[Rfam]
RNA sequence: CGUUUAUCUCAGGGCGGGGUGAAAGUCCCCACCGGCGGUAACAUGCAUCGCGCAUGAAGCCCGCGAGCGCUUUGUUAUCUUUGGCAUUAUUGUCAUGGAUAGUAAAGGUCAGCAGAUCCAGUGUGAAUCUGGAGCCGACGGUUAUAGUCCGGAUGGGAGAGAAUUAAC
Numbered sequence: 001c002g003u004u005u006a007u008c009u010c011a012g013g014g015c016g017g018g019g020u021g022a023a024a025g026u027c028c029c030c031a032c033c034g035g036c037g038g039u040a041a042c043a044u045g046c047a048u049c050g051c052g053c054a055u056g057a058a059g060c061c062c063g064c065g066a067g068c069g070c071u072u073u074g075u076u077a078u079c080u081u082u083g084g085c086a087u088u089a090u091u092g093u094c095a096u097g098g099a100u101a102g103u104a105a106a107g108g109u110c111a112g113c114a115g116a117u118c119c120a121g122u123g124u125g126a127a128u129c130u131g132g133a134g135c136c137g138a139c140g141g142u143u144a145u146a147g148u149c150c151g152g153a154u155g156g157g158a159g160a161g162a163a164u165u166a167a168c
Stems, first nucleotide, its partner, number of pairs: 003166001007162004017029003031148002033137002035064004059135002067113002117133005139151003
Dot-bracket structure: ..(...((((......(((.......))).[[((((((....................[[))))..((...........................................))...(((((.......)))))]])).(((.....]]))).......))))...)..

FMN riboswitch aptamer (RFN element): a 168-nucleotide RNA sequence. It scores 106 bits against the family's covariance model.